Shown here is a 126-nucleotide RNA sequence from Streptomyces inusitatus, a member of the family "Streptomyces RNA 3920". Rfam classes the family as a small RNA. From the family's description: Identified by deep sequencing of transcriptome at the end of exponential growth phase. Sequencing size consistent with northern blot size. Streptomyces specific.
[Rfam]
RNA sequence: GAUAGGUCGCUGUCGCUACUGUGAUUGGACACUGACGCAGAGUCAACUAGCCUGGGUCGCGCGGUUCUUCGGGGGGAUGAACCGGGACGGUCCGAGCCACGAGGGGGGAGGCUCGGACCGUCCGUC
Numbered sequence: 001g002a003u004a005g006g007u008c009g010c011u012g013u014c015g016c017u018a019c020u021g022u023g024a025u026u027g028g029a030c031a032c033u034g035a036c037g038c039a040g041a042g043u044c045a046a047c048u049a050g051c052c053u054g055g056g057u058c059g060c061g062c063g064g065u066u067c068u069u070c071g072g073g074g075g076g077a078u079g080a081a082c083c084g085g086g087a088c089g090g091u092c093c094g095a096g097c098c099a100c101g102a103g104g105g106g107g108g109a110g111g112c113u114c115g116g117a118c119c120g121u122c123c124g125u126c
Base pairs, nucleotide, nucleotide: 001014002013003012004011005010015051016050017049018048021032022031023030033045034044035043036042058075060073062071063070064069076083086122087121088120089119090118091117092116093115094114095113096112097111098110100107
The pairing is the family consensus, mapped onto this sequence.